[Rfam]
Nucleotides: 244
Base pairs, nucleotide, nucleotide: 007223008222009221010220016076017075018074019073089104090103091102092101093100094099119155120154121153122152123151180215181214182213183212184211186209187208188207190203191202192201193200226242227241228240229239230238
Number, partner (000 for none) and nucleotide at each position: 001000u002000g003000c004000u005000c006000c007223g008222g009221u010220g011000c012000g013000g014000c015000g016076g017075g018074c019073g020000g021000u022000c023000u024000u025000u026000c027000c028000c029000a030000a031000g032000a033000a034000a035000c036000a037000c038000g039000a040000c041000g042000g043000u044000g045000a046000a047000a048000g049000a050000a051000c052000c053000c054000g055000a056000c057000c058000a059000a060000g061000c062000c063000c064000c065000a066000c067000c068000c069000c070000u071000c072000c073019c074018g075017c076016c077000c078000g079000c080000c081000g082000c083000g084000c085000a086000a087000a088000c089104u090103c091102a092101c093100c094099c095000a096000c097000g098000c099094g100093g101092g102091u103090g104089a105000a106000c107000a108000u109000c110000g111000c112000c113000g114000a115000c116000u117000c118000g119155g120154c121153u122152g123151g124000a125000u126000c127000a128000g129000g130000g131000g132000c133000c134000c135000g136000u137000u138000g139000c140000c141000u142000g143000c144000c145000c146000u147000a148000c149000g150000c151123u152122c153121g154120g155119c156000g157000c158000a159000a160000c161000a162000c163000a164000a165000c166000c167000g168000c169000a170000g171000a172000c173000a174000u175000g176000c177000g178000a179000c180215g181214g182213c183212c184211c185000c186209c187208g188207c189000c190203g191202g192201g193200a194000c195000g196000g197000c198000a199000a200193u201192c202191c203190c204000a205000g206000u207188g208187c209186g210000a211184g212183g213182g214181c215180c216000u217000g218000a219000c220010c221009a222008c223007c224000g225000a226242g227241g228240a229239a230238g231000c232000a233000g234000g235000a236000g237000c238230c239229u240228u241227c242226c243000c244000g
The family of this 244-nucleotide RNA from Streptomyces sp. HG99 is "Streptomyces sRNA 4677". Taxonomically the source falls in Streptomyces (Bacteria, Actinomycetota, Actinomycetes, Streptomycetaceae). It scores 229 bits against the family's covariance model. Located in the intergenic region between anti-sigma factor SCO4677 gene and a putative regulatory protein gene SCO4676. scr4677 expression requires the SCO4677 activity and scr4677 sRNA itself seem to affect the levels of the SCO4676-associated transcripts.